[Rfam]
Nucleotides: 125
Base pairs, nucleotide, nucleotide: 008084009083010082011081012080013026014025015024016023027055028054029053030052031051032050033049034048035047036046037045038044056079057078058077059076062073108125110123112122113121114120115119
Number, partner (000 for none) and nucleotide at each position: 001000a002000a003000a004000a005000a006000g007000g008084g009083c010082u011081u012080c013026u014025g015024u016023c017000u018000u019000g020000a021000g022000u023016g024015a025014c026013a027055c028054a029053c030052a031051u032050a033049g034048g035047g036046c037045a038044g039000c040000u041000c042000a043000u044038u045037u046036g047035c048034u049033c050032u051031a052030u053029g054028u055027g056079c057078g058077g059076a060000a061000c062073u063000g064000a065000c066000a067000u068000c069000a070000a071000g072000a073062g074000a075000c076059u077058u078057c079056g080012g081011a082010a083009g084008c085000a086000u087000a088000a089000u090000u091000u092000u093000u094000g095000u096000u097000g098000a099000u100000u101000g102000g103000g104000c105000a106000g107000c108125u109000g110123g111000u112122g113121a114120u115119c116000a117000u118000u119115g120114a121113u122112c123110c124000a125108a
Annotation:
U11 spliceosomal RNA: a 125-nucleotide RNA sequence from Erinaceus europaeus. Lineage of the source: Eukaryota > Bilateria > Theria > Eutheria > Erinaceus. The match comes from Rfam's covariance-model search (82 bits). The base pairs follow the family's consensus structure, which is taken from published work.